small nucleolar RNA snoR114: an 88-nucleotide sequence from Ipomoea nil. The family's RNA type in Rfam is C/D-box small nucleolar RNA. The family's consensus secondary structure was predicted with RNAalifold. The source organism's lineage runs through Eukaryota, Euphyllophyta, Gunneridae, asterids and Ipomoea.
[Rfam]
RNA sequence: AAGCUGUGAUGAACUUCGCGCUUGAGUGGUGAUUGGGUCGCCACAAUUAUCUGAAUCUAGUCGGACGAUUAAUUGCGCAUCUGAGCUU
Number, nucleotide and partner (000 for none) at each position: 001a088002a087003g086004c085005u000006g000007u000008g000009a000010u000011g000012a000013a000014c000015u000016u000017c000018g000019c000020g000021c000022u000023u000024g000025a000026g000027u000028g000029g000030u000031g000032a000033u000034u000035g000036g000037g000038u000039c000040g000041c000042c000043a000044c000045a000046a000047u000048u000049a000050u000051c000052u000053g000054a000055a000056u000057c000058u000059a000060g000061u000062c000063g000064g000065a000066c000067g000068a000069u000070u000071a000072a000073u000074u000075g000076c000077g000078c000079a000080u000081c000082u000083g000084a000085g004086c003087u002088u001